Shown here is a 407-nucleotide RNA from Lautropia mirabilis, a member of the family "Bacterial RNase P class A". A search with the family's covariance model found it, with a score of 278 bits. The family's RNA type in Rfam is ribozyme.
RNA sequence: GGAGCGGGUCGGACGGUCGCCGGGGCAACCCGGAGGAAGGUCCGGACUCCUGCGGGCAGGAUGCUGGCUAACGGCCAGGCGCCAUAAGGACAAAGUGGGGCGGCGUCCCACUUUGUCCCCAAAGCGACGGACAGUGGCACAGAAAACAGACCGCCCGGCAGCUCAGCCUGCCGGGUAAGGGUGAAAAGGUGGGGUAAGAGCCCACCGCGCGGCUGGUGACAGGCGUGGCACGCCAAACCCCAUCCGGAGCAACAUCAUGUAGGCACGCGACGCAGCCUCGGCUGCACAGGGCGCCCGCCCGAGCGUGCGGGUGGAUGGCUAGAGCCGGCCGGCAACGGUUGGCCCAGAUGAAUGACCGUCACACCUUCCCAGGUGGACAGAAUCCGGCCUACAGACCCGCUCCAUCC
Numbered sequence: 001g002g003a004g005c006g007g008g009u010c011g012g013a014c015g016g017u018c019g020c021c022g023g024g025g026c027a028a029c030c031c032g033g034a035g036g037a038a039g040g041u042c043c044g045g046a047c048u049c050c051u052g053c054g055g056g057c058a059g060g061a062u063g064c065u066g067g068c069u070a071a072c073g074g075c076c077a078g079g080c081g082c083c084a085u086a087a088g089g090a091c092a093a094a095g096u097g098g099g100g101c102g103g104c105g106u107c108c109c110a111c112u113u114u115g116u117c118c119c120c121a122a123a124g125c126g127a128c129g130g131a132c133a134g135u136g137g138c139a140c141a142g143a144a145a146a147c148a149g150a151c152c153g154c155c156c157g158g159c160a161g162c163u164c165a166g167c168c169u170g171c172c173g174g175g176u177a178a179g180g181g182u183g184a185a186a187a188g189g190u191g192g193g194g195u196a197a198g199a200g201c202c203c204a205c206c207g208c209g210c211g212g213c214u215g216g217u218g219a220c221a222g223g224c225g226u227g228g229c230a231c232g233c234c235a236a237a238c239c240c241c242a243u244c245c246g247g248a249g250c251a252a253c254a255u256c257a258u259g260u261a262g263g264c265a266c267g268c269g270a271c272g273c274a275g276c277c278u279c280g281g282c283u284g285c286a287c288a289g290g291g292c293g294c295c296c297g298c299c300c301g302a303g304c305g306u307g308c309g310g311g312u313g314g315a316u317g318g319c320u321a322g323a324g325c326c327g328g329c330c331g332g333c334a335a336c337g338g339u340u341g342g343c344c345c346a347g348a349u350g351a352a353u354g355a356c357c358g359u360c361a362c363a364c365c366u367u368c369c370c371a372g373g374u375g376g377a378c379a380g381a382a383u384c385c386g387g388c389c390u391a392c393a394g395a396c397c398c399g400c401u402c403c404a405u406c407c
Stems, first nucleotide, its partner, number of pairs: 001403010011392001012360007020033005038390003042387005047249004054296004059245005064078005079128001080126003129240002134238002136234003151180002153176009188206006207229001208227004213222003253317004263308006287301001289299002324343008